[Rfam]
RNA sequence: GGCAGUGUGGCCGAGUGGUUAUGGCGUUGGUCUAGAAAACCAAUGAGUUUAUCUCUCACAGGUUCGAAUCCUGUCGCUGUCG
Number, nucleotide and partner (000 for none) at each position: 001g081002g080003c079004a078005g077006u076007g075008u000009g000010g025011c024012c023013g022014a000015g000016u000017g000018g000019u000020u000021a000022u013023g012024g011025c010026g000027u043028u042029g041030g040031u039032c000033u000034a000035g000036a000037a000038a000039a031040c030041c029042a028043a027044u000045g000046a000047g000048u000049u000050u000051a000052u000053c000054u000055c000056u000057c000058a074059c073060a072061g071062g070063u000064u000065c000066g000067a000068a000069u000070c062071c061072u060073g059074u058075c007076g006077c005078u004079g003080u002081c001082g000